Source information: This 101-nucleotide sequence from Amphibacillus marinus belongs to the Rfam family "Purine riboswitch aptamer". The match comes from Rfam's covariance-model search (72 bits). Rfam describes the family as follows. Riboswitches are metabolite binding domains within certain messenger RNAs that serve as precision sensors for their corresponding targets. Allosteric rearrangement of mRNA structure is mediated by ligand binding, and this results in modulation of gene expression. A class of riboswitches that selectively recognises guanine and becomes saturated at concentrations as low as 5 nM. In Bacillus subtilis, this mRNA motif is located on at least five separate transcriptional units that together encode 17 genes that are mostly involved in purine transport and purine nucleotide biosynthesis. It has also been shown that some members of this family are specific for adenine instead.
RNA sequence: AAAAAAUAAAUAGCUUUUCGUCGUAUAAUCUUGAGGAUAUGGCUCUGGAGUCUCUACCGACCACCGUAAAUGGUCUGUCUACGCAGAAGAAUGAAAAAAAG
Numbered sequence: 001a002a003a004a005a006a007u008a009a010a011u012a013g014c015u016u017u018u019c020g021u022c023g024u025a026u027a028a029u030c031u032u033g034a035g036g037a038u039a040u041g042g043c044u045c046u047g048g049a050g051u052c053u054c055u056a057c058c059g060a061c062c063a064c065c066g067u068a069a070a071u072g073g074u075c076u077g078u079c080u081a082c083g084c085a086g087a088a089g090a091a092u093g094a095a096a097a098a099a100a101g
Stems, first nucleotide, its partner, number of pairs: 018087002022083004029049003033045003058077001059075005